The family of this 88-nucleotide sequence from Caldicoprobacter faecalis is "c-di-GMP-I riboswitch aptamer". Gene Ontology term of the family: cyclic-di-GMP binding. The family's consensus secondary structure is taken from published work.
RNA sequence: CUUGUUAAAGGGCAAACCUGUCGAAAGGCAGGGGCGCAAAGCCAAGGGCCUAAGGAACGUUAUCGUUCUAUGGCAGCCGGUUGCACAA
Numbered sequence: 001c002u003u004g005u006u007a008a009a010g011g012g013c014a015a016a017c018c019u020g021u022c023g024a025a026a027g028g029c030a031g032g033g034g035c036g037c038a039a040a041g042c043c044a045a046g047g048g049c050c051u052a053a054g055g056a057a058c059g060u061u062a063u064c065g066u067u068c069u070a071u072g073g074c075a076g077c078c079g080g081u082u083g084c085a086c087a088a
Base pairs, nucleotide, nucleotide: 012037013036017032018031019030020029021028022027040082041081042080043079046078047077048074049073050072055068056067057066058065